[Rfam]
RNA sequence: UUGUGGAAUUUGAAGACUUCAACUUGUAUACUUGAAGAAUUUGAAGACUUUAACUCGCAUACUUGUCUGAGUUUAAAGACGUCAAGC
Numbered sequence: 001u002u003g004u005g006g007a008a009u010u011u012g013a014a015g016a017c018u019u020c021a022a023c024u025u026g027u028a029u030a031c032u033u034g035a036a037g038a039a040u041u042u043g044a045a046g047a048c049u050u051u052a053a054c055u056c057g058c059a060u061a062c063u064u065g066u067c068u069g070a071g072u073u074u075a076a077a078g079a080c081g082u083c084a085a086g087c
Base pairs, nucleotide, nucleotide: 001085002084003083006080009077010076011075012074013073014072017069020065021064025059026058027057032053033052034051035050036049037048
MIR8024 microRNA precursor family: an 87-nucleotide sequence from Solanum tuberosum. Its family is annotated with miRNA-mediated post-transcriptional gene silencing and RISC complex in the Gene Ontology. The organism belongs to Solanum, within Eukaryota. The family's consensus secondary structure was predicted with RNAalifold. The match comes from Rfam's covariance-model search (59 bits).